[Rfam]
RNA: Manganese Mn2+ riboswitch aptamer (yybP-ykoY)
RNA sequence: CCGGCUGUCUUUGGGGAGUAGCCGGCUUUCGCGACAGCGGAAGCGUUCAUGUCAACACGCUCGGUCGUAGACCGUGGCAUGAACCGCCUUCGGGUUGGCAAGACCAUCGACAUGUCAGCGCGGCCCGCCGGGCGCGCGGCAUGUCGUACGUCCACGCCCGGCUCGCACGCU
Numbered sequence: 001c002c003g004g005c006u007g008u009c010u011u012u013g014g015g016g017a018g019u020a021g022c023c024g025g026c027u028u029u030c031g032c033g034a035c036a037g038c039g040g041a042a043g044c045g046u047u048c049a050u051g052u053c054a055a056c057a058c059g060c061u062c063g064g065u066c067g068u069a070g071a072c073c074g075u076g077g078c079a080u081g082a083a084c085c086g087c088c089u090u091c092g093g094g095u096u097g098g099c100a101a102g103a104c105c106a107u108c109g110a111c112a113u114g115u116c117a118g119c120g121c122g123g124c125c126c127g128c129c130g131g132g133c134g135c136g137c138g139g140c141a142u143g144u145c146g147u148a149c150g151u152c153c154a155c156g157c158c159c160g161g162c163u164c165g166c167a168c169g170c171u
Stems, first nucleotide, its partner, number of pairs: 025044003045084010062074005